[Rfam]
RNA: RT-2 RNA
Organism: Clostridium sp. CAG:1013
RNA sequence: CACGGUCAAAUGGAGUAACCGGAAGGUGAAAGACGACCGAUGUAAAAGGAGAGAUACUUCCCAGGGGGAAGCCCCUGAAACUGCCCUCUGAUGCCCUUGCACGGACGCUGCUUGCAUGGCGGGGCGAUAUGCCUAUCCCCGUUUCAUGUGCCGGGGCAAAGCAGAUUAGACGGCAUCCUACACCACAUCUGUACGGAGGUGCGAAUACUUUUUAUGACAAGC
Numbered sequence: 001c002a003c004g005g006u007c008a009a010a011u012g013g014a015g016u017a018a019c020c021g022g023a024a025g026g027u028g029a030a031a032g033a034c035g036a037c038c039g040a041u042g043u044a045a046a047a048g049g050a051g052a053g054a055u056a057c058u059u060c061c062c063a064g065g066g067g068g069a070a071g072c073c074c075c076u077g078a079a080a081c082u083g084c085c086c087u088c089u090g091a092u093g094c095c096c097u098u099g100c101a102c103g104g105a106c107g108c109u110g111c112u113u114g115c116a117u118g119g120c121g122g123g124g125c126g127a128u129a130u131g132c133c134u135a136u137c138c139c140c141g142u143u144u145c146a147u148g149u150g151c152c153g154g155g156g157c158a159a160a161g162c163a164g165a166u167u168a169g170a171c172g173g174c175a176u177c178c179u180a181c182a183c184c185a186c187a188u189c190u191g192u193a194c195g196g197a198g199g200u201g202c203g204a205a206u207a208c209u210u211u212u213u214a215u216g217a218c219a220a221g222c
Stems, first nucleotide, its partner, number of pairs: 004038004019026002064075004083202002085199006092193001093157005099151004107115002118143007161192005167187001168179002